Rfam assigns this 204-nucleotide RNA from Bos taurus to the family "Connexin-43 internal ribosome entry site (IRES)". The family has 14 seed sequences and 657 matches in Rfam 15.1. The organism belongs to Bos, within Eukaryota.

RNA sequence: AGCUUUUACGAGGUAUCAGCACUUUUCUUUCAUUAGGGGGAAGGAGUGAGGAAAGUACCAAACAGCAGCAGACUUUUAAACUUUAAAUAGACAGGUCUGAGUGCCUGGGCUUGCUUUUUCAUCUUUCUUCAUCCUCUGAGGAGUUCAAUCACUUGGCUUGCCUACUUCACUUCUUUUAAGAGAAAGAGUAAGUUUUUAAAAGAA
Number, nucleotide and partner (000 for none) at each position: 001a000002g020003c019004u018005u000006u000007u015008a014009c013010g000011a000012g000013g009014u008015a007016u000017c000018a004019g003020c002021a000022c000023u000024u000025u000026u000027c000028u000029u143030u142031c141032a000033u139034u138035a137036g136037g135038g134039g133040g130041a129042a128043g127044g000045a000046g000047u000048g123049a122050g000051g120052a000053a119054a118055g117056u000057a000058c000059c000060a000061a000062a000063c000064a000065g000066c000067a000068g000069c000070a098071g097072a096073c095074u094075u093076u000077u000078a000079a000080a000081c000082u000083u000084u000085a000086a000087a000088u000089a000090g000091a000092c000093a075094g074095g073096u072097c071098u070099g114100a000101g112102u000103g110104c000105c000106u000107g000108g000109g000110c103111u000112u101113g000114c099115u000116u000117u055118u054119u053120c051121a000122u049123c048124u000125u000126u000127c043128u042129u041130c040131a000132u000133c039134c038135u037136c036137u035138g034139a033140g000141g031142a030143g029144u000145u000146c000147a000148a000149u000150c000151a000152c000153u199154u198155g197156g196157c000158u000159u000160g193161c192162c000163u000164a000165c186166u185167u184168c182169a000170c180171u179172u178173c000174u000175u000176u000177u000178a172179a171180g170181a000182g168183a000184a167185a166186g165187a000188g000189u000190a000191a000192g161193u160194u000195u000196u156197u155198a154199a153200a000201a000202g000203a000204a000

From the family's description: This family represents the connexin-43 internal ribosome entry site (IRES) which allows cap independent translation during conditions such as heat shock and stress.
For this family Rfam cites "Connexin43 mRNA contains a functional internal ribosome entry site" (Schiavi et al., FEBS Lett, 1999).